S15-Flavobacteria ribosomal protein leader: a 69-nucleotide RNA from Myroides indicus.
Clan: Ribosomal Protein S15 Leader clan.
A reference for the family is Eckert and Weinberg (2020), "Discovery of 20 novel ribosomal leader candidates in bacteria and archaea", BMC Microbiol.
Taxonomically the source falls in Myroides (Bacteria, Pseudomonadati, Flavobacteriia, Flavobacteriaceae).
[Rfam]
RNA sequence: UACCUUUGCGCCUGAAUUGCGGAGAGACUGUAAUUCGUGCAUAAAAAUGAUUUAAAAAAUAUUAGCAUG
Numbered sequence: 001u002a003c004c005u006u007u008g009c010g011c012c013u014g015a016a017u018u019g020c021g022g023a024g025a026g027a028c029u030g031u032a033a034u035u036c037g038u039g040c041a042u043a044a045a046a047a048u049g050a051u052u053u054a055a056a057a058a059a060u061a062u063u064a065g066c067a068u069g
Base pairs, nucleotide, nucleotide: 014036015035016034017033018032019031020030021029